[Rfam]
RNA sequence: UAAUAGGGCGAUCUGGCUGCGACAUCUGUCACCCCAUUGAUCGCCAGGGUUGAUUCGGCUGCUCUGGCUGGCUAGGCGGGUGUCCCCUUCCUCCCUCACGGCUCCAUGUGCGUCCCUCCCGAAGCUGCGCGCUCGGUGGAAGAGGACGACCAUCCCAGAUAGAAGGAGUGUACCGUUCUUCGGUCAAGGGUAUACGAUAGCUGCGCUCCCCUGCUAGAACCUCCAAACAAGCUCAAGGUCCAUUUGUAGGAGAACGUAGGGUAGUCAAACAAUUGUAAGCUCCGGAGCUGGCAGCCAUUUGCUGCGGAGU
Numbered sequence: 001u002a003a004u005a006g007g008g009c010g011a012u013c014u015g016g017c018u019g020c021g022a023c024a025u026c027u028g029u030c031a032c033c034c035c036a037u038u039g040a041u042c043g044c045c046a047g048g049g050u051u052g053a054u055u056c057g058g059c060u061g062c063u064c065u066g067g068c069u070g071g072c073u074a075g076g077c078g079g080g081u082g083u084c085c086c087c088u089u090c091c092u093c094c095c096u097c098a099c100g101g102c103u104c105c106a107u108g109u110g111c112g113u114c115c116c117u118c119c120c121g122a123a124g125c126u127g128c129g130c131g132c133u134c135g136g137u138g139g140a141a142g143a144g145g146a147c148g149a150c151c152a153u154c155c156c157a158g159a160u161a162g163a164a165g166g167a168g169u170g171u172a173c174c175g176u177u178c179u180u181c182g183g184u185c186a187a188g189g190g191u192a193u194a195c196g197a198u199a200g201c202u203g204c205g206c207u208c209c210c211c212u213g214c215u216a217g218a219a220c221c222u223c224c225a226a227a228c229a230a231g232c233u234c235a236a237g238g239u240c241c242a243u244u245u246g247u248a249g250g251a252g253a254a255c256g257u258a259g260g261g262u263a264g265u266c267a268a269a270c271a272a273u274u275g276u277a278a279g280c281u282c283c284g285g286a287g288c289u290g291g292c293a294g295c296c297a298u299u300u301g302c303u304g305c306g307g308a309g310u
Stems, first nucleotide, its partner, number of pairs: 005096004010090002015087002021084010032071002034067003039064002042061001043059003114170001115166003118162001119136004124132002137159001144155003200270001202268001206264002209261006221252004227247005288309002291305005
Dot-bracket structure: ....((((.((...((....((((((((((.(((((..((.((((...........))).).)))))..))...)))))))))).)).))..)))).................(((((((((.((.....))))))(......(((......)))...)..).)))...).............................(.(...((.((((((......((((..(((((...........))))).))))...)))))).))...).).................((.(((((.....)))))..)).